Source information
Rfam assigns this 37-nucleotide RNA from Trichocoleus sp. FACHB-832 to the family "CRISPR RNA direct repeat element". The family has 3 seed sequences and 201 matches in Rfam 15.1. NCBI's taxonomy places the organism under Bacteria, Cyanophyceae, Leptolyngbyales, Trichocoleusaceae, Trichocoleus. Rfam links the family to the GO term defense response.

[Rfam]
RNA sequence: CUUUCAACCCACCCCAAGGCGGGAGGGUUGAUGAAAC
Numbered sequence: 001c002u003u004u005c006a007a008c009c010c011a012c013c014c015c016a017a018g019g020c021g022g023g024a025g026g027g028u029u030g031a032u033g034a035a036a037c
Base pairs, nucleotide, nucleotide: 005033006032008030009027010026013023014022015021